[Rfam]
RNA sequence: CUCUGGAGAGCGUCUGUUGAUUUAAUUGACAGACCACCCACGAAGCAAGCGGUUUACAAGCGUGAAACGAAUCGUGAAACUUUCUGGUGAACAGACAGAG
Dot-bracket structure: (((((......(((((((((.....))))))))).(((.(..(((...(((((((.............)))))))....))))..))).......)))))
RNA: Glycine riboswitch aptamer